Source information
Rfam assigns this 73-nucleotide RNA sequence from Podospora anserina to the family "tRNA".

RNA sequence: GAAUUAGUAACUUAAUUGGUAGAGGGUUUCCUUGUCACGGAAGCAGAUGCCGGUUCGAUGCCGGUCUAGUUCG
Numbered sequence: 001g002a003a004u005u006a007g008u009a010a011c012u013u014a015a016u017u018g019g020u021a022g023a024g025g026g027u028u029u030c031c032u033u034g035u036c037a038c039g040g041a042a043g044c045a046g047a048u049g050c051c052g053g054u055u056c057g058a059u060g061c062c063g064g065u066c067u068a069g070u071u072c073g
Stems, first nucleotide, its partner, number of pairs: 001072007011024003027043005049065005

Taxonomically the source falls in Podospora (Eukaryota, Dikarya, Pezizomycotina, Sordariales). Transfer RNA (tRNA) molecules are approximately 80 nucleotides in length. Rfam links the family to the GO term triplet codon-amino acid adaptor activity. The family's consensus secondary structure is taken from published work. Rfam's curators put it in the seed alignment.